[Rfam]
A member of the RNA family "mir-26 microRNA precursor family" from Platysternon megacephalum, 81 nucleotides long. Lineage of the source: Eukaryota > Euteleostomi > Amniota > Testudinata > Platysternon. Its family is annotated with miRNA-mediated post-transcriptional gene silencing and RISC complex in the Gene Ontology.
RNA sequence: CCGGCGCCGGGUUCAAGUAAUCCAGGAUAGGCUGUGGUCUGCGCAGUUGGCCUGUUCUCGAUUACUUGGCGCCGGAGCCGG
Numbered sequence: 001c002c003g004g005c006g007c008c009g010g011g012u013u014c015a016a017g018u019a020a021u022c023c024a025g026g027a028u029a030g031g032c033u034g035u036g037g038u039c040u041g042c043g044c045a046g047u048u049g050g051c052c053u054g055u056u057c058u059c060g061a062u063u064a065c066u067u068g069g070c071g072c073c074g075g076a077g078c079c080g081g
Stems, first nucleotide, its partner, number of pairs: 002080004007075004014068009024058010